[Rfam]
Rfam assigns this 44-nucleotide sequence from Takifugu bimaculatus to the family "Guanidine-II riboswitch aptamer (mini-ykkC)". Lineage of the source: Eukaryota > Acanthomorphata > Tetraodontoidei > Tetradontoidea > Takifugu. The base pairs follow the family's consensus structure, which is taken from published work. Gene Ontology term of the family: regulation of gene expression.

RNA sequence: GUCCCGGGACGGCCUGGGAUGGUGUCUGUCCCGGGACGGCCUGG
Numbered sequence: 001g002u003c004c005c006g007g008g009a010c011g012g013c014c015u016g017g018g019a020u021g022g023u024g025u026c027u028g029u030c031c032c033g034g035g036a037c038g039g040c041c042u043g044g
Stems, first nucleotide, its partner, number of pairs: 001020008031044005